[Rfam]
Nucleotides: 099
Base pairs, nucleotide, nucleotide: 018085019084020083021082022081023080024079025078029048030047031046032045033044034043057075058074059073060072061071062070
Number, partner (000 for none) and nucleotide at each position: 001000g002000a003000a004000u005000a006000g007000a008000a009000u010000a011000g012000c013000u014000u015000c016000u017000c018085u019084u020083u021082u022081c023080g024079u025078a026000u027000a028000u029048c030047c031046u032045u033044a034043a035000u036000a037000a038000u039000u040000g041000g042000u043034u044033u045032a046031a047030g048029g049000g050000u051000c052000u053000c054000u055000a056000c057075c058074g059073g060072a061071a062070a063000c064000c065000g066000u067000a068000a069000a070062u071061u072060u073059c074058u075057g076000g077000c078025u079024a080023c081022g082021a083020a084019a085018a086000u087000a088000u089000g090000c091000u092000a093000c094000g095000g096000c097000a098000u099000a

The family of this 99-nucleotide sequence from Paenibacillus sp. FSL H7-0737 is "Purine riboswitch aptamer". Gene Ontology term of the family: purine nucleobase biosynthetic process. The organism belongs to Paenibacillus, within Bacteria.